[Rfam]
RNA sequence: CACAGGGCUUCACCCUGUGCUGUAAUAUUCCGCCCCUUCGGGGCU
Numbered sequence: 001c002a003c004a005g006g007g008c009u010u011c012a013c014c015c016u017g018u019g020c021u022g023u024a025a026u027a028u029u030c031c032g033c034c035c036c037u038u039c040g041g042g043g044c045u
Base pairs, nucleotide, nucleotide: 001019002018003017004016005015006014007013032044033043034042035041036040
RNA: Acido-Lenti-1 RNA